small nucleolar RNA snoR114: an 87-nucleotide sequence from Tripterygium wilfordii. It scores 60 bits against the family's covariance model. The family has 24 seed sequences and 1,645 matches in Rfam 15.1. A reference for the family is Chen and Wu (2009), "Mining small RNA sequencing data: a new approach to identify small nucleolar RNAs in Arabidopsis", Nucleic Acids Res.
RNA sequence: GAGCUAUGAUGAAAUUUGCAUUUGUGAUGGGGGGUCCAUCACGCUCAUCUGAUGUCGCAGAUGAUACCAAGUGACGUCUCUGAGCUC
Numbered sequence: 001g002a003g004c005u006a007u008g009a010u011g012a013a014a015u016u017u018g019c020a021u022u023u024g025u026g027a028u029g030g031g032g033g034g035u036c037c038a039u040c041a042c043g044c045u046c047a048u049c050u051g052a053u054g055u056c057g058c059a060g061a062u063g064a065u066a067c068c069a070a071g072u073g074a075c076g077u078c079u080c081u082g083a084g085c086u087c
Stems, first nucleotide, its partner, number of pairs: 001087004